[Rfam]
Annotation: Rfam assigns this 82-nucleotide RNA from Yersinia ruckeri to the family "sroB RNA". The literature on the family includes a 2009 paper in Mol Microbiol by Overgaard et al., "Switching off small RNA regulation with trap-mRNA". Pairs were carried over by alignment from the consensus structure, which was predicted with LocARNA.
RNA sequence: AGGGAGGCUAAGUUGUUACGUAAUAACUAAAACAAUGAAAAUUCCUCUUUGACUGGCCAAUAGAGAUAUUGGCCAUUUUUUU
Numbered sequence: 001a002g003g004g005a006g007g008c009u010a011a012g013u014u015g016u017u018a019c020g021u022a023a024u025a026a027c028u029a030a031a032a033c034a035a036u037g038a039a040a041a042u043u044c045c046u047c048u049u050u051g052a053c054u055g056g057c058c059a060a061u062a063g064a065g066a067u068a069u070u071g072g073c074c075a076u077u078u079u080u081u082u
Base pairs, nucleotide, nucleotide: 009018010017011016028034054075055074056073057072058071059070060069061068062067